[Rfam]
RNA sequence: GCGAAACGCUAGGGGUCCUGGUUAUUGAAUCAUCAAUAAUCGGGUGAGAUACACCCUCUGAACCUGAUCUGGGUAAUGCCAGCGAAGGGAAGCUGUCGAGACAUAGU
Numbered sequence: 001g002c003g004a005a006a007c008g009c010u011a012g013g014g015g016u017c018c019u020g021g022u023u024a025u026u027g028a029a030u031c032a033u034c035a036a037u038a039a040u041c042g043g044g045u046g047a048g049a050u051a052c053a054c055c056c057u058c059u060g061a062a063c064c065u066g067a068u069c070u071g072g073g074u075a076a077u078g079c080c081a082g083c084g085a086a087g088g089g090a091a092g093c094u095g096u097c098g099a100g101a102c103a104u105a106g107u
Base pairs, nucleotide, nucleotide: 008093009092010091011057012056013055014054016051017044018043019042020041021040022039023038024037025036026035027034063088064087065086069082070081071080072079
RNA: TPP riboswitch aptamer (THI element)
Organism: Glaciimonas soli